RNA sequence: CUGUGGUGCAUUGUAGUUGCAUUGCAUGAUCCUGCAGCCCAUUGCAAUGUGUCUGCAGUGCAGUACAG
Numbered sequence: 001c002u003g004u005g006g007u008g009c010a011u012u013g014u015a016g017u018u019g020c021a022u023u024g025c026a027u028g029a030u031c032c033u034g035c036a037g038c039c040c041a042u043u044g045c046a047a048u049g050u051g052u053c054u055g056c057a058g059u060g061c062a063g064u065a066c067a068g
Base pairs, nucleotide, nucleotide: 001068002067003066004065006064007062008061009060010059011058012057013056014055015054016053019050021048022047023046024045025044026043
Rfam assigns this 68-nucleotide sequence from Salmo trutta to the family "mir-33 microRNA precursor family".
Pairs were carried over by alignment from the consensus structure, which was predicted with PFOLD.
It scores 69 bits against the family's covariance model.
A reference for the family is Li et al. (2009), "Direct sequencing and expression analysis of a large number of miRNAs in Aedes aegypti and a multi-species survey of novel mosquito miRNAs", BMC Genomics.
Rfam 15.1 lists 1,467 matches to the family in 815 species.